[Rfam]
Nucleotides: 131
Base pairs, nucleotide, nucleotide: 036096037095038094040092041091042090044088045087049085050084052082056079057076058075059074060073062071063070064069
Number, partner (000 for none) and nucleotide at each position: 001000u002000g003000c004000a005000a006000c007000a008000u009000c010000a011000a012000a013000a014000c015000g016000a017000c018000a019000a020000a021000a022000u023000g024000a025000c026000a027000a028000c029000a030000a031000a032000u033000u034000u035000c036096a037095a038094a039000a040092a041091u042090a043000c044088a045087g046000c047000a048000u049085g050084g051000u052082g053000g054000u055000g056079g057076c058075a059074a060073u061000u062071g063070a064069c065000a066000a067000a068000c069064g070063u071062c072000g073060g074059u075058u076057g077000a078000a079056c080000a081000g082052u083000c084050c085049c086000a087045u088044u089000a090042u091041g092040u093000a094038u095037u096036u097000u098000c099000g100000a101000u102000a103000a104000a105000g106000a107000u108000a109000u110000a111000u112000u113000u114000a115000u116000c117000a118000c119000g120000a121000a122000a123000a124000g125000g126000c127000u128000u129000a130000c131000u